[Rfam]
The record is a 106-nucleotide RNA sequence from Mesobacillus campisalis, which matches "TPP riboswitch aptamer (THI element)" in Rfam. Pairs were carried over by alignment from the consensus structure, which is taken from published work.

RNA sequence: CAUAACCACAAGGGGAGCUUGAAGCUGAGAAAGAAGGUCGCAUGACUGUUCUGACCCUUUGAACCUGUUAGAUAAUGCUAGCGCAGGGAUGUGGAUUUAUAUGAGU
Numbered sequence: 001c002a003u004a005a006c007c008a009c010a011a012g013g014g015g016a017g018c019u020u021g022a023a024g025c026u027g028a029g030a031a032a033g034a035a036g037g038u039c040g041c042a043u044g045a046c047u048g049u050u051c052u053g054a055c056c057c058u059u060u061g062a063a064c065c066u067g068u069u070a071g072a073u074a075a076u077g078c079u080a081g082c083g084c085a086g087g088g089a090u091g092u093g094g095a096u097u098u099a100u101a102u103g104a105g106u
Base pairs, nucleotide, nucleotide: 006094007093008092009091010090011058012057013056014055017025018024019023032052033051034050035049064087065086066085067084068081069080070079071078

Annotation:
It scores 68 bits against the family's covariance model. Lineage of the source: Bacteria > Bacillota > Bacilli > Caryophanales > Mesobacillus.